[Rfam]
RNA: DUF805b RNA
RNA sequence: AAAGCGGAAGCCGAAAAGCUAGAUAGAGUAGGUA
Numbered sequence: 001a002a003a004g005c006g007g008a009a010g011c012c013g014a015a016a017a018g019c020u021a022g023a024u025a026g027a028g029u030a031g032g033u034a
Stems, first nucleotide, its partner, number of pairs: 003020003010033003